[Rfam]
RNA: NiCo (Nickel/Cobalt) riboswitch aptamer
RNA sequence: ACAGUACAAACUGAUCAGGCCAUAUCUUAUGUUUGGAGCCGGGCUGUAAAGCAGCAGCGGGUUGUGAAAACACCUGCGGGACAGUA
Numbered sequence: 001a002c003a004g005u006a007c008a009a010a011c012u013g014a015u016c017a018g019g020c021c022a023u024a025u026c027u028u029a030u031g032u033u034u035g036g037a038g039c040c041g042g043g044c045u046g047u048a049a050a051g052c053a054g055c056a057g058c059g060g061g062u063u064g065u066g067a068a069a070a071c072a073c074c075u076g077c078g079g080g081a082c083a084g085u086a
Stems, first nucleotide, its partner, number of pairs: 010085004016080001018040003022034001024032002043055005057077006